[Rfam]
Rfam assigns this 88-nucleotide sequence from Chanos chanos to the family "mir-146 microRNA precursor family".
The organism belongs to Chanos, within Eukaryota.
For this family Rfam cites "Identification of tissue-specific microRNAs from mouse" (Lagos-Quintana et al., Curr Biol, 2002).
Rfam links the family to the GO terms RISC complex and miRNA-mediated post-transcriptional gene silencing.
Nucleotides: 088
Base pairs, nucleotide, nucleotide: 011076013074018070019069020068021067022066023065024064025063033056034055035054036053
Number, partner (000 for none) and nucleotide at each position: 001000u002000u003000g004000a005000g006000u007000u008000u009000u010000u011076g012000g013074c014000c015000u016000u017000g018070a019069g020068a021067a022066c023065u024064g025063a026000a027000u028000u029000c030000c031000a032000u033056a034055g035054a036053u037000g038000g039000u040000g041000g042000c043000u044000c045000a046000c047000a048000a049000a050000u051000u052000c053036a054035u055034c056033u057000a058000u059000g060000g061000g062000u063025u064024c065023a066022g067021u068020u069019c070018u071000u072000c073000u074013g075000g076011u077000a078000u079000u080000c081000u082000a083000c084000u085000c086000a087000u088000u